[Rfam]
The record is an 84-nucleotide RNA sequence from Propionispira arboris, which matches "c-di-GMP-I-GGC riboswitch aptamer" in Rfam. Its Rfam clan is "c-di-GMP_I riboswitch clan". The family's consensus secondary structure is taken from published work.
RNA sequence: UUAUAUAUUGGCAAACUUGUUGAAAAACAAGGGCGCAAAACUAUGGGUCUAAAGAAGUAUUCCAUGACUGCCAGGUUGCAUAAG
Numbered sequence: 001u002u003a004u005a006u007a008u009u010g011g012c013a014a015a016c017u018u019g020u021u022g023a024a025a026a027a028c029a030a031g032g033g034c035g036c037a038a039a040a041c042u043a044u045g046g047g048u049c050u051a052a053a054g055a056a057g058u059a060u061u062c063c064a065u066g067a068c069u070g071c072c073a074g075g076u077u078g079c080a081u082a083a084g
Base pairs, nucleotide, nucleotide: 001084003081004080011036012035016031017030018029019028020027021026034070039077040076041075042074044073045072046071047068048067049066